[Rfam]
RNA sequence: GAGUGUUGCUCUUGUAAGUCGCUUUGGAUAAGAGCGUCUGCUAAAUGACUGAAA
Numbered sequence: 001g002a003g004u005g006u007u008g009c010u011c012u013u014g015u016a017a018g019u020c021g022c023u024u025u026g027g028a029u030a031a032g033a034g035c036g037u038c039u040g041c042u043a044a045a046u047g048a049c050u051g052a053a054a
Stems, first nucleotide, its partner, number of pairs: 013043001014041003020036006
UnaL2 LINE 3' element: a 54-nucleotide sequence from Hucho hucho. Rfam links the family to the GO term transposition, RNA-mediated. A search with the family's covariance model found it, with a score of 59 bits. A reference for the family is Baba et al. (2004), "Solution structure of an RNA stem-loop derived from the 3' conserved region of eel LINE UnaL2", RNA.